A member of the RNA family "HNH endonuclease-associated RNA and ORF (HEARO) RNA" from Trichococcus palustris, 213 nucleotides long. A search with the family's covariance model found it, with a score of 99 bits.
RNA sequence: GUCAACUACCCACGACUGAAGUCGUAGGCUUGUAAAAGCCUUAGUUGAGCAGACUCAGUUUCCGCUUUGCGGGAGCUACGUUAAAUUAGCCAUCAUGGUCUCUUGUGCUUCUCCAGCAGGAACAGUCAUGGUCAGCAGUCUAAACAGUCCGAAGGGUUAGGGCCGUGCUGCUGAUGUAAAAAACUUUUUUAACUUUGUCGAGGAGAGAGAGGC
Numbered sequence: 001g002u003c004a005a006c007u008a009c010c011c012a013c014g015a016c017u018g019a020a021g022u023c024g025u026a027g028g029c030u031u032g033u034a035a036a037a038g039c040c041u042u043a044g045u046u047g048a049g050c051a052g053a054c055u056c057a058g059u060u061u062c063c064g065c066u067u068u069g070c071g072g073g074a075g076c077u078a079c080g081u082u083a084a085a086u087u088a089g090c091c092a093u094c095a096u097g098g099u100c101u102c103u104u105g106u107g108c109u110u111c112u113c114c115a116g117c118a119g120g121a122a123c124a125g126u127c128a129u130g131g132u133c134a135g136c137a138g139u140c141u142a143a144a145c146a147g148u149c150c151g152a153a154g155g156g157u158u159a160g161g162g163c164c165g166u167g168c169u170g171c172u173g174a175u176g177u178a179a180a181a182a183a184c185u186u187u188u189u190u191a192a193c194u195u196u197g198u199c200g201a202g203g204a205g206a207g208a209g210a211g212g213c
Base pairs, nucleotide, nucleotide: 002048003047004046005045006044007043008042010028011027012025013024015022016021029038030037031036052199053198054197057077058076059075060074061073062072063071064070065069080193081192082191083190084189085188088185089184095129096128099122101121102120103119104118105117106116109207110206111205112204113203114202131175132174133173134172135171136170137169138168139167144166145165147163148162149161150160151158152157

Rfam 15.1 lists 952 matches to the family in 249 species. A reference for the family is Weinberg et al. (2009), "Exceptional structured noncoding RNAs revealed by bacterial metagenome analysis", Nature.